This 134-nucleotide RNA sequence from Vibrio sp. 10N.286.49.B3 belongs to the Rfam family "TPP riboswitch aptamer (THI element)".
[Rfam]
RNA sequence: ACUAACUUGUCGGAGUGCUGACUUUUCAUCUGUUUAUCAUGAUUGAAAUUGAAAUUGAAAGCUGAGACCGCAUUGCGGAAUUCGUUGAACCUGAUCAGGCUAAUACCUGCGAAGGAAACAAGAGAAGAUAUAUC
Numbered sequence: 001a002c003u004a005a006c007u008u009g010u011c012g013g014a015g016u017g018c019u020g021a022c023u024u025u026u027c028a029u030c031u032g033u034u035u036a037u038c039a040u041g042a043u044u045g046a047a048a049u050u051g052a053a054a055u056u057g058a059a060a061g062c063u064g065a066g067a068c069c070g071c072a073u074u075g076c077g078g079a080a081u082u083c084g085u086u087g088a089a090c091c092u093g094a095u096c097a098g099g100c101u102a103a104u105a106c107c108u109g110c111g112a113a114g115g116a117a118a119c120a121a122g123a124g125a126a127g128a129u130a131u132a133u134c
Stems, first nucleotide, its partner, number of pairs: 006122005011084004016078001017062003069077003090115003096109004